[Rfam]
RNA sequence: GGCCUCGAUUCUUGGCGCUCUGAUGCAUAUUCAUCAGAAGUGUAUGCAUAAUCGGAGGUAGAGUAAGUUGUGCCAAGUGGCGCAGCAGUCGAAUCACCUUCGGUGUCAGGCAUUAUCCUUAGUGUUUGAUAUUAUCCUCUGGAUUCGGAACACUU
Numbered sequence: 001g002g003c004c005u006c007g008a009u010u011c012u013u014g015g016c017g018c019u020c021u022g023a024u025g026c027a028u029a030u031u032c033a034u035c036a037g038a039a040g041u042g043u044a045u046g047c048a049u050a051a052u053c054g055g056a057g058g059u060a061g062a063g064u065a066a067g068u069u070g071u072g073c074c075a076a077g078u079g080g081c082g083c084a085g086c087a088g089u090c091g092a093a094u095c096a097c098c099u100u101c102g103g104u105g106u107c108a109g110g111c112a113u114u115a116u117c118c119u120u121a122g123u124g125u126u127u128g129a130u131a132u133u134a135u136c137c138u139c140u141g142g143a144u145u146c147g148g149a150a151c152a153c154u155u
Base pairs, nucleotide, nucleotide: 003058004057005056006055007053008052009051010050015043016042017041018040020037021036022035023034024033025032089148090147091146092145093144094143095142102133103132106129107128108127109126110125111124112123113122114121
RNA: Nematode snoRNA ceN88
Organism: Loa loa